[Rfam]
This 106-nucleotide sequence from Pelotomaculum schinkii belongs to the Rfam family "Guanidine-I riboswitch aptamer".
RNA sequence: UUUAAGGUUUUAUAGGGUUCCGCAGUUUUUAUAAAAAGCACUGGUCUGGACCAAGAUAAAACGCACAGUUUCUCUGUGUUCACGGAAGGAUAAAAGCCUGGGAGAU
Number, nucleotide and partner (000 for none) at each position: 001u000002u000003u000004a000005a000006g000007g062008u061009u060010u059011u058012a057013u000014a000015g052016g051017g000018u000019u000020c049021c048022g046023c043024a042025g041026u040027u000028u038029u037030u036031a000032u000033a000034a000035a000036a030037a029038g028039c000040a026041c025042u024043g023044g000045u000046c022047u000048g021049g020050a000051c016052c015053a000054a000055g000056a000057u012058a011059a010060a009061a008062c007063g079064c078065a077066c076067a075068g074069u000070u000071u000072c000073u000074c068075u067076g066077u065078g064079u063080u000081c101082a000083c104084g000085g000086a000087a099088g098089g097090a000091u000092a000093a000094a000095a000096g000097c089098c088099u087100g000101g081102g000103a000104g083105a000106u000
This family represents a conserved RNA structure found upstream of the ykkC and yxkD genes in Bacillus subtilis and related genes in other bacteria. The organism belongs to Pelotomaculum, within Bacteria. For this family Rfam cites "New RNA motifs suggest an expanded scope for riboswitches in bacterial genetic control" (Barrick et al., Proc Natl Acad Sci U S A, 2004).